A member of the RNA family "Mason-Pfizer monkey virus packaging signal" from Cavia porcellus, 275 nucleotides long.
About the family: This family represents a group of sequences that are related to the Mason-Pfizer monkey virus (MPMV) packaging signal.
On this family, see Mustafa et al., Virus Res 2004: "Mutational analysis of the predicted secondary RNA structure of the Mason-Pfizer monkey virus packaging signal".
It scores 109 bits against the family's covariance model.
Rfam 15.1 lists 2,921 matches to the family in 53 species.
RNA sequence: AGAUCCCCAAUGUGGGACCUGAGAAUGGGGGACUUCGUGAGGGAAGCUAUUUGUGGGCCCAAAGUAGAAAAAAGAAAAGGAAAUAGAGGACCUGGCAACAUGGGAGCCUGCCAUGCUGCUAAACCUUGGUAAGUGAAGAGAGAUUAUGGAACAAGAAAUGAGCCAGCAUGAGAUUUUUGUUGUAAAUUUAGGAAAGGCUUUAAAGGCACAGUAAGUAAAGGUUAAAAUUAAGCAGUUAUGUCAAUAUUUUGAUUUUAUAAAGGAAGUUUUUCCCU
Numbered sequence: 001a002g003a004u005c006c007c008c009a010a011u012g013u014g015g016g017a018c019c020u021g022a023g024a025a026u027g028g029g030g031g032a033c034u035u036c037g038u039g040a041g042g043g044a045a046g047c048u049a050u051u052u053g054u055g056g057g058c059c060c061a062a063a064g065u066a067g068a069a070a071a072a073a074g075a076a077a078a079g080g081a082a083a084u085a086g087a088g089g090a091c092c093u094g095g096c097a098a099c100a101u102g103g104g105a106g107c108c109u110g111c112c113a114u115g116c117u118g119c120u121a122a123a124c125c126u127u128g129g130u131a132a133g134u135g136a137a138g139a140g141a142g143a144u145u146a147u148g149g150a151a152c153a154a155g156a157a158a159u160g161a162g163c164c165a166g167c168a169u170g171a172g173a174u175u176u177u178u179g180u181u182g183u184a185a186a187u188u189u190a191g192g193a194a195a196g197g198c199u200u201u202a203a204a205g206g207c208a209c210a211g212u213a214a215g216u217a218a219a220g221g222u223u224a225a226a227a228u229u230a231a232g233c234a235g236u237u238a239u240g241u242c243a244a245u246a247u248u249u250u251g252a253u254u255u256u257a258u259a260a261a262g263g264a265a266g267u268u269u270u271u272c273c274c275u
Base pairs, nucleotide, nucleotide: 006031007030008029012026013025037047038046083130084129088126089125095119096118099115100114101113102112103111138152142147159202160201161200162198163197164196209251210250211249213247215245216244219237220236222234260275262273263272264271265270